Shown here is a 152-nucleotide sequence from Rhizobium sp. Leaf306, a member of the family "Rhizobiales sRNA Atu_C7". For this family Rfam cites "Deep sequencing uncovers numerous small RNAs on all four replicons of the plant pathogen Agrobacterium tumefaciens" (Wilms et al., RNA Biol, 2012). NCBI's taxonomy places the organism under Bacteria, Pseudomonadati, Hyphomicrobiales, Rhizobiaceae, Rhizobium. A search with the family's covariance model found it, with a score of 58 bits. By type it is a small RNA.
[Rfam]
RNA sequence: GCACUUGGACCGAGAGAGGUCCCGCGUUGUUGCCUUGUACAAGCUUCACAGGUCUCCCCGGCGCAAUUGCGGCCGCAGGCGUUUUCCUCCCUCGCCUUGCGGCUAUGCGCCUGCCUUGCCUCGCUUGCGCUAACUGCGCAGCGAGGCAUUUU
Dot-bracket structure: ...........................................................((((((...........(((((...........)))))......)..)))))......((((((((.((.......))..)))))))).....